Rfam assigns this 149-nucleotide RNA sequence from Lactuca sativa to the family "small nucleolar RNA snoR135". NCBI's taxonomy places the organism under Eukaryota, Viridiplantae, Tracheophyta, Pentapetalae, Lactuca. The literature on the family includes a 2009 paper in Nucleic Acids Res by Chen and Wu, "Mining small RNA sequencing data: a new approach to identify small nucleolar RNAs in Arabidopsis". Rfam classes the family as an H/ACA-box small nucleolar RNA. A search with the family's covariance model found it, with a score of 128 bits.

RNA sequence: GAAGCAGAGAUAGUGUGUAUCGGCGUUGUGCUAUUUGAUGCACUUUGACUGAAAGAGUUCUCUGCAACAUUAAUGUGACAUGGGAAAGGUGGGCAGUUGUGCUCCAUUUUUCUUGAUUGGAUUCUUCAACAAUCAUUUUUCCCACAUUC
Numbered sequence: 001g002a003a004g005c006a007g008a009g010a011u012a013g014u015g016u017g018u019a020u021c022g023g024c025g026u027u028g029u030g031c032u033a034u035u036u037g038a039u040g041c042a043c044u045u046u047g048a049c050u051g052a053a054a055g056a057g058u059u060c061u062c063u064g065c066a067a068c069a070u071u072a073a074u075g076u077g078a079c080a081u082g083g084g085a086a087a088g089g090u091g092g093g094c095a096g097u098u099g100u101g102c103u104c105c106a107u108u109u110u111u112c113u114u115g116a117u118u119g120g121a122u123u124c125u126u127c128a129a130c131a132a133u134c135a136u137u138u139u140u141c142c143c144a145c146a147u148u149c
Base pairs, nucleotide, nucleotide: 004065005064006063007062008061009060010059015043016042017041018040019039020038082143083142084141085140086139087138088137089136090135091134092133096130097129098128099127